This 155-nucleotide sequence from Pararhizobium antarcticum belongs to the Rfam family "speF leader". The family's RNA type in Rfam is cis-regulatory leader. The family's consensus secondary structure was predicted with RNAalifold. A search with the family's covariance model found it, with a score of 113 bits. For this family Rfam cites "A survey of sRNA families in alpha-proteobacteria" (del Val et al., RNA Biol, 2012). This family is a putative regulatory RNA structure that is found upstream of the speF gene encoding ornithine decarboxylase in Agrobacterium tumefaciens and other alpha-proteobacteria. The organism belongs to Pararhizobium, within Bacteria.
RNA sequence: UUCCGGCUUUCCAUCAGCCGGGGUUACUGAAGAGGCACACCUUCAUUGCCCGAAGUGCGGUAGGGACACCCCUCCAAUCAAAGGCAGACAAAGCCGAACAAAGCUCCUGGCAGGGCGUUGUUCACUUAUCCGCGCAUCGUGCGCAUGUCUGGAUC
Numbered sequence: 001u002u003c004c005g006g007c008u009u010u011c012c013a014u015c016a017g018c019c020g021g022g023g024u025u026a027c028u029g030a031a032g033a034g035g036c037a038c039a040c041c042u043u044c045a046u047u048g049c050c051c052g053a054a055g056u057g058c059g060g061u062a063g064g065g066a067c068a069c070c071c072c073u074c075c076a077a078u079c080a081a082a083g084g085c086a087g088a089c090a091a092a093g094c095c096g097a098a099c100a101a102a103g104c105u106c107c108u109g110g111c112a113g114g115g116c117g118u119u120g121u122u123c124a125c126u127u128a129u130c131c132g133c134g135c136a137u138c139g140u141g142c143g144c145a146u147g148u149c150u151g152g153a154u155c
Stems, first nucleotide, its partner, number of pairs: 001023008034050004057135003083095002103118002105115003